Rfam assigns this 88-nucleotide RNA sequence from Apteryx australis to the family "Small nucleolar RNA SNORD70". Rfam's curators write: snoRNA HBII-234 belongs to the C/D family of snoRNAs. Pairs were carried over by alignment from the consensus structure. The family has 21 seed sequences and 1,085 matches in Rfam 15.1.
RNA sequence: AGCUCUGUUGUCAGUGAUGGAUUCUUGCUGGAGCUGAAUAUAAAUGAUUUGAGCCAACAUUUCGUCGCUACGGACAGACAACAGACUG
Numbered sequence: 001a002g003c004u005c006u007g008u009u010g011u012c013a014g015u016g017a018u019g020g021a022u023u024c025u026u027g028c029u030g031g032a033g034c035u036g037a038a039u040a041u042a043a044a045u046g047a048u049u050u051g052a053g054c055c056a057a058c059a060u061u062u063c064g065u066c067g068c069u070a071c072g073g074a075c076a077g078a079c080a081a082c083a084g085a086c087u088g
Base pairs, nucleotide, nucleotide: 002087004085005084006083007082008081009080010079011078012077